[Rfam]
RNA sequence: UGUGUAGAGGGGAGUGAGGGUACUGUGCACUAUCAAUCAGGUAACCUUUCCUACUCUCACAGU
Numbered sequence: 001u002g003u004g005u006a007g008a009g010g011g012g013a014g015u016g017a018g019g020g021u022a023c024u025g026u027g028c029a030c031u032a033u034c035a036a037u038c039a040g041g042u043a044a045c046c047u048u049u050c051c052u053a054c055u056c057u058c059a060c061a062g063u
Base pairs, nucleotide, nucleotide: 002060003059004058006057007056008055009054011052014050016048017047018046022042023041024040
RNA: mir-7398 microRNA precursor family
Organism: Monodelphis domestica